[Rfam]
RNA sequence: AACGCCUUUAAUUCAGUCCCGUGAGGCUGACAAGGGGAAUGCCCUUUCCGGUGGGAAGGUGGAAACCUCUUGUGCCUGUGGCAGAAGAGGUUUUUUUU
Numbered sequence: 001a002a003c004g005c006c007u008u009u010a011a012u013u014c015a016g017u018c019c020c021g022u023g024a025g026g027c028u029g030a031c032a033a034g035g036g037g038a039a040u041g042c043c044c045u046u047u048c049c050g051g052u053g054g055g056a057a058g059g060u061g062g063a064a065a066c067c068u069c070u071u072g073u074g075c076c077u078g079u080g081g082c083a084g085a086a087g088a089g090g091u092u093u094u095u096u097u098u
Stems, first nucleotide, its partner, number of pairs: 003037001005035004013030006042059002045056002049054001062094010073083003